[Rfam]
Overview:
This 100-nucleotide RNA belongs to the Rfam family "c-di-GMP-II-GCG riboswitch aptamer". Rfam's curators put it in the seed alignment.
RNA sequence: CCGGGAACGGGAGGCGUUGACGCGCGGCGCGCCCAACUACGGUCGCCCUACGCUGCCCGAAUGCCGCGCUGAGCCAAUGGCGAGCCCGACCCGUGCACGA
Dot-bracket structure: .((.(.(((((.(((......((((((((...........[[[[[[[..............))))))))...)))...]]]]]..]]..))))).).)).